[Rfam]
RNA: Bacterial large subunit ribosomal RNA, nucleotides 851 to 1288
RNA sequence: CUCUCCGAAAUAGCUUUAGGGCUAGCCUCAUAAUAAGCAUACUGGAGGUAGAGCACUGUUAAGCCUAGGGGCCCAUCUCGGGUUACCAAAGUUUGAUAAACUCCGAAUGCCAGAUAUGUAUGUAUGGGAGUCAGACGGUGAGUGAUAAGAUCCAUCGUCGAAAGGGGAACAGCCCAGAUCGCCAGUUAAGGUCCCUAAAUAUAUGUUAAGUGGAAAACGAUGUGAAAGUGCAUAGACAACUAGGAUGUUGGCUUAGAAGCAGCCACCAUUUAAAGAGUGCGUAAUAGCUCACUAGUCGAGUGCCUUUGCGCGGAAAAUGUACCGGGGCUAAACAUAUUACCGAAACUGCGGGUGUACUUUAAAGUACGCGAUAGGAGAGCGUUGUAUAGGCAAUGAAGGUAGACCGUGAGGACUGCUGGAGCGUAUACAAGUGAGAAU
Dot-bracket structure: ((((((....(((((....))))).(((((((...((((((((((.....(((...(((.((((...(((((((.....))))).))...)))).)))..)).).....)))).))))).).)))))).)...(((((((.((......)).)))))))....(((......)))...((((.(((...(((......(.((((((...........((..(((((.((((.......(((((.(((..(((.........)))..)))(...)(...((......)).).)))))...)))).))))).))...................))))))))))...)))))))(((((((....)))))))....))))))(.(((((((.((......(((((.((....)).)))))...)).)))))))..).....
Numbered sequence: 001c002u003c004u005c006c007g008a009a010a011u012a013g014c015u016u017u018a019g020g021g022c023u024a025g026c027c028u029c030a031u032a033a034u035a036a037g038c039a040u041a042c043u044g045g046a047g048g049u050a051g052a053g054c055a056c057u058g059u060u061a062a063g064c065c066u067a068g069g070g071g072c073c074c075a076u077c078u079c080g081g082g083u084u085a086c087c088a089a090a091g092u093u094u095g096a097u098a099a100a101c102u103c104c105g106a107a108u109g110c111c112a113g114a115u116a117u118g119u120a121u122g123u124a125u126g127g128g129a130g131u132c133a134g135a136c137g138g139u140g141a142g143u144g145a146u147a148a149g150a151u152c153c154a155u156c157g158u159c160g161a162a163a164g165g166g167g168a169a170c171a172g173c174c175c176a177g178a179u180c181g182c183c184a185g186u187u188a189a190g191g192u193c194c195c196u197a198a199a200u201a202u203a204u205g206u207u208a209a210g211u212g213g214a215a216a217a218c219g220a221u222g223u224g225a226a227a228g229u230g231c232a233u234a235g236a237c238a239a240c241u242a243g244g245a246u247g248u249u250g251g252c253u254u255a256g257a258a259g260c261a262g263c264c265a266c267c268a269u270u271u272a273a274a275g276a277g278u279g280c281g282u283a284a285u286a287g288c289u290c291a292c293u294a295g296u297c298g299a300g301u302g303c304c305u306u307u308g309c310g311c312g313g314a315a316a317a318u319g320u321a322c323c324g325g326g327g328c329u330a331a332a333c334a335u336a337u338u339a340c341c342g343a344a345a346c347u348g349c350g351g352g353u354g355u356a357c358u359u360u361a362a363a364g365u366a367c368g369c370g371a372u373a374g375g376a377g378a379g380c381g382u383u384g385u386a387u388a389g390g391c392a393a394u395g396a397a398g399g400u401a402g403a404c405c406g407u408g409a410g411g412a413c414u415g416c417u418g419g420a421g422c423g424u425a426u427a428c429a430a431g432u433g434a435g436a437a438u
Stems, first nucleotide, its partner, number of pairs: 001379006011024005026130001027128006036121001037119005042113004051104001052102002057098003061094004068087002070084005134159007142151002164175003179351004184347003190341003199338001201337006218312002222309005228303004239296005245269003250264003270274001275290001279288002352369007380433001382430007390422002398417005404411002